The family of this 192-nucleotide sequence from Hanseniaspora osmophila is "Small nucleolar RNA snR190". The organism belongs to Hanseniaspora, within Eukaryota. It scores 86 bits against the family's covariance model. The family's RNA type in Rfam is C/D-box small nucleolar RNA. Its Rfam clan is "SNORD12 clan".
[Rfam]
RNA sequence: GGCAAUGAUUGAAAAUGGUCUUACUUCUUUCCCAGUCCGACUCGACCAUGACGACAGGGAGUCAAUCAAACACACCACGUUUCAAUCAAUUCGGUUUUUUGGUUUUCCUUCGGGGAAACUGGAUCACUGGUUGGUACGCAAAUGAAACUUUUCUUGCCAAAAUACUUCAGUAUUUUACAAAAUUUCUGAGCC
Numbered sequence: 001g002g003c004a005a006u007g008a009u010u011g012a013a014a015a016u017g018g019u020c021u022u023a024c025u026u027c028u029u030u031c032c033c034a035g036u037c038c039g040a041c042u043c044g045a046c047c048a049u050g051a052c053g054a055c056a057g058g059g060a061g062u063c064a065a066u067c068a069a070a071c072a073c074a075c076c077a078c079g080u081u082u083c084a085a086u087c088a089a090u091u092c093g094g095u096u097u098u099u100u101g102g103u104u105u106u107c108c109u110u111c112g113g114g115g116a117a118a119c120u121g122g123a124u125c126a127c128u129g130g131u132u133g134g135u136a137c138g139c140a141a142a143u144g145a146a147a148c149u150u151u152u153c154u155u156g157c158c159a160a161a162a163u164a165c166u167u168c169a170g171u172a173u174u175u176u177a178c179a180a181a182a183u184u185u186c187u188g189a190g191c192c
Stems, first nucleotide, its partner, number of pairs: 001192003007186002009181001020061003024058003035052003066146001071144002078138003082134007090126001100121009154180003160175005